[Rfam]
RNA sequence: UAUUAUUACAGGUAGUUAUACGCUGUAUACUUGUGUAACUGAAUUAACGUUUAAGCGGAGUGUAAUCUUCGUCAGUCGCAAGGGGGUCGCUUAUUAGGUUAAGCGACCUUAUUUAUUUGU
Numbered sequence: 001u002a003u004u005a006u007u008a009c010a011g012g013u014a015g016u017u018a019u020a021c022g023c024u025g026u027a028u029a030c031u032u033g034u035g036u037a038a039c040u041g042a043a044u045u046a047a048c049g050u051u052u053a054a055g056c057g058g059a060g061u062g063u064a065a066u067c068u069u070c071g072u073c074a075g076u077c078g079c080a081a082g083g084g085g086g087u088c089g090c091u092u093a094u095u096a097g098g099u100u101a102a103g104c105g106a107c108c109u110u111a112u113u114u115a116u117u118u119g120u
Base pairs, nucleotide, nucleotide: 007027008026009025010024011023012021013020014019030082031081032080033079034078035077038076039075040074041073042051043050044049055072056071057070058069059068060067083110084109085108086107087106088105089104090103091102092101
A member of the RNA family "DUF3800-I RNA" from Streptococcus satellite phage Javan632, 120 nucleotides long. By type it is a small RNA. Actinobacteria, Firmicutes, Fusobacteria, Proteobacteria (1 example), Tenericutes (2 examples). Pairs were carried over by alignment from the consensus structure, which is taken from published work.